Rfam assigns this 88-nucleotide RNA from Solanum commersonii to the family "mir-156 microRNA precursor family". Rfam describes the family as follows. This family represents the plant microRNA (miRNA) precursor mir-156. The organism belongs to Solanum, within Eukaryota. The match comes from Rfam's covariance-model search (67 bits).

RNA sequence: GUGACAGAAGAGAGUGAGCACAUAUGGUGUUUUCUUGCAUGAUGUUUAUAUGCUUGAGCCUAUGCGUGCUCACUGCUUUAUCUUUCAU
Numbered sequence: 001g002u003g004a005c006a007g008a009a010g011a012g013a014g015u016g017a018g019c020a021c022a023u024a025u026g027g028u029g030u031u032u033u034c035u036u037g038c039a040u041g042a043u044g045u046u047u048a049u050a051u052g053c054u055u056g057a058g059c060c061u062a063u064g065c066g067u068g069c070u071c072a073c074u075g076c077u078u079u080a081u082c083u084u085u086c087a088u
Stems, first nucleotide, its partner, number of pairs: 001088004006083003010078003013074009023064003